[Rfam]
RNA sequence: ACUUCAGAAGGGAGGUGGUUCGGCAGAUGUAUGACAACCGGACGGAAGAGGUGGCUGCGGGCCAGUAGCCCGCCGCCGUACUCGGUUCGGCGCCGGACCGGCGUGUGCGAGAUACACGCAACCGGCCCAAUCCAACGCAGUCACCCGACCCGCGAGUCGCCGGUAACGUCCGGCCGGCUCCUCCCCAGGGAGGAACCAGACUCGCGGGUCGUCUGCU
Numbered sequence: 001a002c003u004u005c006a007g008a009a010g011g012g013a014g015g016u017g018g019u020u021c022g023g024c025a026g027a028u029g030u031a032u033g034a035c036a037a038c039c040g041g042a043c044g045g046a047a048g049a050g051g052u053g054g055c056u057g058c059g060g061g062c063c064a065g066u067a068g069c070c071c072g073c074c075g076c077c078g079u080a081c082u083c084g085g086u087u088c089g090g091c092g093c094c095g096g097a098c099c100g101g102c103g104u105g106u107g108c109g110a111g112a113u114a115c116a117c118g119c120a121a122c123c124g125g126c127c128c129a130a131u132c133c134a135a136c137g138c139a140g141u142c143a144c145c146c147g148a149c150c151c152g153c154g155a156g157u158c159g160c161c162g163g164u165a166a167c168g169u170c171c172g173g174c175c176g177g178c179u180c181c182u183c184c185c186c187a188g189g190g191a192g193g194a195a196c197c198a199g200a201c202u203c204g205c206g207g208g209u210c211g212u213c214u215g216c217u
Stems, first nucleotide, its partner, number of pairs: 015058005060127004065122002068119002146211013159178006
This 217-nucleotide sequence from Streptomyces caelestis belongs to the Rfam family "Actinobacteria sRNA Ms_IGR-5".
A search with the family's covariance model found it, with a score of 76 bits.
By type it is a small RNA.
NCBI's taxonomy places the organism under Bacteria, Bacillati, Actinomycetota, Actinomycetes, Streptomyces.
The pairing is the family consensus, mapped onto this sequence.